[Rfam]
RNA: M-box riboswitch aptamer (ykoK leader)
Organism: Streptococcus intermedius
RNA sequence: AUGAAAAAUCGGUAGGUGAGGCUACCAUAGGGAUACGGAUGACUACCGCAAAGUAGUGGAGACACUAUGCGCUGGUUAGCAGUUGAGAUCGCUAAGGUUUUGACUAAUGUCAUUUCACUGCCCUACGGAGUUAAAGCUUGAACGGAACACAAGA
Numbered sequence: 001a002u003g004a005a006a007a008a009u010c011g012g013u014a015g016g017u018g019a020g021g022c023u024a025c026c027a028u029a030g031g032g033a034u035a036c037g038g039a040u041g042a043c044u045a046c047c048g049c050a051a052a053g054u055a056g057u058g059g060a061g062a063c064a065c066u067a068u069g070c071g072c073u074g075g076u077u078a079g080c081a082g083u084u085g086a087g088a089u090c091g092c093u094a095a096g097g098u099u100u101u102g103a104c105u106a107a108u109g110u111c112a113u114u115u116c117a118c119u120g121c122c123c124u125a126c127g128g129a130g131u132u133a134a135a136g137c138u139u140g141a142a143c144g145g146a147a148c149a150c151a152a153g154a
Base pairs, nucleotide, nucleotide: 009146010145011143013095015138016137017136020132021131022130025128026127028125029124030123031122032121039113040112041111042110043109046074048072049071055066056065057064058063082104083103084102085101088098089097090096